[Rfam]
RNA sequence: AGAGCAGGAGCUGCUGCCUCACACAGGAGCAAAUUACUGUGUUUGGCUAAUCUGCAGUAACUUGCUCCUGGGAGAGGCAGUGGCUCCUGGCU
Number, nucleotide and partner (000 for none) at each position: 001a092002g091003a000004g000005c089006a088007g087008g086009a085010g084011c083012u082013g081014c080015u079016g078017c077018c076019u075020c074021a000022c072023a000024c070025a069026g068027g067028a066029g065030c064031a063032a062033a000034u060035u059036a058037c057038u000039g055040u054041g053042u000043u000044u000045g000046g000047c000048u000049a000050a000051u000052c000053u041054g040055c039056a000057g037058u036059a035060a034061c000062u032063u031064g030065c029066u028067c027068c026069u025070g024071g000072g022073a000074g020075a019076g018077g017078c016079a015080g014081u013082g012083g011084c010085u009086c008087c007088u006089g005090g000091c002092u001
RNA: mir-1451 microRNA precursor family
Organism: Cardinalis cardinalis